[Rfam]
RNA sequence: AUUUGUGCGGUGACGAUACUUAUGUGGACUAGAGUUUCUGAUCUGGAUAACUUCACCCAGAAUCUGAUUAUCAACCCCUUGGCUGUCUGAGCACACAC
Numbered sequence: 001a002u003u004u005g006u007g008c009g010g011u012g013a014c015g016a017u018a019c020u021u022a023u024g025u026g027g028a029c030u031a032g033a034g035u036u037u038c039u040g041a042u043c044u045g046g047a048u049a050a051c052u053u054c055a056c057c058c059a060g061a062a063u064c065u066g067a068u069u070a071u072c073a074a075c076c077c078c079u080u081g082g083c084u085g086u087c088u089g090a091g092c093a094c095a096c097a098c
Stems, first nucleotide, its partner, number of pairs: 002097001004095005037067002042062001043060004
RNA: Small nucleolar RNA Z157/R69/R10